RNA sequence: CUGGGGAGCAGGGCUUAGCUGCUUGUGAGCAGGGUCUGCACCAAGUCGUGUUCACAGUGGCUAAGUUCCGCCCCCCUG
Numbered sequence: 001c002u003g004g005g006g007a008g009c010a011g012g013g014c015u016u017a018g019c020u021g022c023u024u025g026u027g028a029g030c031a032g033g034g035u036c037u038g039c040a041c042c043a044a045g046u047c048g049u050g051u052u053c054a055c056a057g058u059g060g061c062u063a064a065g066u067u068c069c070g071c072c073c074c075c076c077u078g
Base pairs, nucleotide, nucleotide: 011068012067013066014065015064016063017062018061019060020059025055026054027053028052029051030050031049